[Rfam]
RNA sequence: CCAUCUGUAUCACCAGAUGAACCUAGGGCUCUGAAUAAAGUAGCGAGCCUUACAAUGUAACGAAGAUUGGUUGUUAGCCAAUCGGGAUCUGAAUCGUGAGAGAACGAUCCUCCUGAUAACCACAAUCGGGUGAGUGC
Numbered sequence: 001c002c003a004u005c006u007g008u009a010u011c012a013c014c015a016g017a018u019g020a021a022c023c024u025a026g027g028g029c030u031c032u033g034a035a036u037a038a039a040g041u042a043g044c045g046a047g048c049c050u051u052a053c054a055a056u057g058u059a060a061c062g063a064a065g066a067u068u069g070g071u072u073g074u075u076a077g078c079c080a081a082u083c084g085g086g087a088u089c090u091g092a093a094u095c096g097u098g099a100g101a102g103a104a105c106g107a108u109c110c111u112c113c114u115g116a117u118a119a120c121c122a123c124a125a126u127c128g129g130g131u132g133a134g135u136g137c
Base pairs, nucleotide, nucleotide: 002019003018004017005016006015007014027049028048029047030046031045032040065083066082067081068080069079070078071077085110086109087108088107094101095100112130113129114128115127116126117125
Dot-bracket structure: .((((((......)))))).......((((((.......)....)))))...............(((((((.....))))))).((((.....((....)).....)))).((((((.......)))))).......
Overview: The record is a 137-nucleotide sequence from Photobacterium lipolyticum, which matches "Group II catalytic intron D1-D4-7" in Rfam. The family has 244 seed sequences and 1,296 matches in Rfam 15.1. On this family, see Lehmann and Schmidt, Crit Rev Biochem Mol Biol 2003: "Group II introns: structure and catalytic versatility of large natural ribozymes". The organism belongs to Photobacterium, within Bacteria. A search with the family's covariance model found it, with a score of 78 bits.